[Rfam]
RNA: U4 spliceosomal RNA
RNA sequence: AGCAUUGCGCAGUGGCAGUAUCGUAACCAAUGAGGUUUAACCGAGGUGCGAUUAUUGCUAGUUGAAAACUUUUCCCAAUACCCCGCCAAGACGACUUGCAAUAUAGUCGGCUAAGGCAAUUUUUGUUAGCCCAGCCUUGGG
Numbered sequence: 001a002g003c004a005u006u007g008c009g010c011a012g013u014g015g016c017a018g019u020a021u022c023g024u025a026a027c028c029a030a031u032g033a034g035g036u037u038u039a040a041c042c043g044a045g046g047u048g049c050g051a052u053u054a055u056u057g058c059u060a061g062u063u064g065a066a067a068a069c070u071u072u073u074c075c076c077a078a079u080a081c082c083c084c085g086c087c088a089a090g091a092c093g094a095c096u097u098g099c100a101a102u103a104u105a106g107u108c109g110g111c112u113a114a115g116g117c118a119a120u121u122u123u124u125g126u127u128a129g130c131c132c133a134g135c136c137u138u139g140g141g
Stems, first nucleotide, its partner, number of pairs: 020052005026047003034042003085117003089112002092109005130141004